[Rfam]
RNA sequence: UGCAUCAGUGAUGAUACGUUGGCUCCCUCUACUGAAGUCUGUGUAGAAACCUGCCAAUCGUUACCCGAUAUGUCUGAGAUGUU
Numbered sequence: 001u002g003c004a005u006c007a008g009u010g011a012u013g014a015u016a017c018g019u020u021g022g023c024u025c026c027c028u029c030u031a032c033u034g035a036a037g038u039c040u041g042u043g044u045a046g047a048a049a050c051c052u053g054c055c056a057a058u059c060g061u062u063a064c065c066c067g068a069u070a071u072g073u074c075u076g077a078g079a080u081g082u083u
Stems, first nucleotide, its partner, number of pairs: 002082005

About this RNA:
The record is an 83-nucleotide sequence from Amphiprion percula, which matches "Small nucleolar RNA SNORD100" in Rfam. For this family Rfam cites "Purified box C/D snoRNPs are able to reproduce site-specific 2'-O-methylation of target RNA in vitro" (Galardi et al., Mol Cell Biol, 2002). The family's RNA type in Rfam is C/D-box small nucleolar RNA.